[Rfam]
RNA sequence: GAUUUAUAAAGACGAGCGGAGAGAAUAGGCUCUAUGAAACUCGGGCAACCUGACGAUACCCAUCGAAAAGGUGCCAAUACCUACCUAAGCGGCUCAAAGUGGCCUUUAGGACUUAUAAACC
Numbered sequence: 001g002a003u004u005u006a007u008a009a010a011g012a013c014g015a016g017c018g019g020a021g022a023g024a025a026u027a028g029g030c031u032c033u034a035u036g037a038a039a040c041u042c043g044g045g046c047a048a049c050c051u052g053a054c055g056a057u058a059c060c061c062a063u064c065g066a067a068a069a070g071g072u073g074c075c076a077a078u079a080c081c082u083a084c085c086u087a088a089g090c091g092g093c094u095c096a097a098a099g100u101g102g103c104c105u106u107u108a109g110g111a112c113u114u115a116u117a118a119a120c121c
Base pairs, nucleotide, nucleotide: 001121003119004118005117006116007115008114013043014042015041016040021032022031023030026083027082028081029080044075045074046073047072049071050070051067079113084110085109086108087107088106089105
This 121-nucleotide sequence from Cytophagaceae bacterium BCCC1 belongs to the Rfam family "SAM riboswitch aptamer (S box leader)".
The match comes from Rfam's covariance-model search (68 bits).
Taxonomically the source falls in Cytophagaceae (Bacteria, Pseudomonadati, Bacteroidota, Cytophagales).